The family of this 135-nucleotide RNA from Oncorhynchus tshawytscha is "Small nucleolar RNA SNORA13". Rfam 15.1 lists 1,034 matches to the family in 605 species. By type it is an H/ACA-box small nucleolar RNA. The match comes from Rfam's covariance-model search (70 bits). ACA13 is a member of the H/ACA class of snoRNA that guide the sites of modification of uridines to pseudouridines.

RNA sequence: UGCCUUUUGUGUUGCCCAUUCAUUGUCUCCAGAGUGAAUGAGGUGUCAACCAAGGCAUACAGUAACCUUGUGGUUGUCUUUUUUUGAAAAGGAGUCUCCAUGGAUUCCUUUCAAUCACUAACUGCAAGAACACAC
Numbered sequence: 001u002g003c004c005u006u007u008u009g010u011g012u013u014g015c016c017c018a019u020u021c022a023u024u025g026u027c028u029c030c031a032g033a034g035u036g037a038a039u040g041a042g043g044u045g046u047c048a049a050c051c052a053a054g055g056c057a058u059a060c061a062g063u064a065a066c067c068u069u070g071u072g073g074u075u076g077u078c079u080u081u082u083u084u085u086g087a088a089a090a091g092g093a094g095u096c097u098c099c100a101u102g103g104a105u106u107c108c109u110u111u112c113a114a115u116c117a118c119u120a121a122c123u124g125c126a127a128g129a130a131c132a133c134a135c
Base pairs, nucleotide, nucleotide: 002056003055004054005053006052010048011047013045014044015043016042017040018039019038020037021036022035023034024033067128068127069126070125073122074121075120076118077117084114085113086112087111088109
Dot-bracket structure: .(((((...((.((((((((((((........)))))))).)))).))...)))))..........((((..(((((......(((((....................).))))..)).)))..)))).......